[Rfam]
RNA sequence: CCGACAUGAAUACCCCUGGGAGAUUACUCUUCCAGGCUCUGUCCAGGUGUCAUAGGGGAGCAUAAGGCUGUGCCCCAUGAUACACAAUCCUUUUCCACAACAUUGGAGGUAAGCCUGUCCCAUGAGUAUGUCUGCAUAUUCCUAUUGUUUUUCAGAGUCCUAUGAACAAUAGCUGAGGAGAGAAGCCAUGCAGGAAACAUCU
Numbered sequence: 001c002c003g004a005c006a007u008g009a010a011u012a013c014c015c016c017u018g019g020g021a022g023a024u025u026a027c028u029c030u031u032c033c034a035g036g037c038u039c040u041g042u043c044c045a046g047g048u049g050u051c052a053u054a055g056g057g058g059a060g061c062a063u064a065a066g067g068c069u070g071u072g073c074c075c076c077a078u079g080a081u082a083c084a085c086a087a088u089c090c091u092u093u094u095c096c097a098c099a100a101c102a103u104u105g106g107a108g109g110u111a112a113g114c115c116u117g118u119c120c121c122a123u124g125a126g127u128a129u130g131u132c133u134g135c136a137u138a139u140u141c142c143u144a145u146u147g148u149u150u151u152u153c154a155g156a157g158u159c160c161u162a163u164g165a166a167c168a169a170u171a172g173c174u175g176a177g178g179a180g181a182g183a184a185g186c187c188a189u190g191c192a193g194g195a196a197a198c199a200u201c202u
Base pairs, nucleotide, nucleotide: 001106002105003104004103007100008044010042011041012040015036016035017034019030020029021028022027047098048097049096056091057090058089059088060085063082064081065078131194132193133192134191135190136189137188148180149179150178151177152176153175157167158166160164
Annotation
The record is a 202-nucleotide RNA from Hipposideros armiger, which matches "Small nucleolar RNA SNORA73 family" in Rfam. Rfam classes the family as an H/ACA-box small nucleolar RNA. Rfam links the family to the GO terms nucleolus and RNA processing. The organism belongs to Hipposideros, within Eukaryota. On this family, see Cervelli et al., J Mol Evol 2002: "Comparative Structure Analysis of Vertebrate U17 Small Nucleolar RNA (snoRNA)".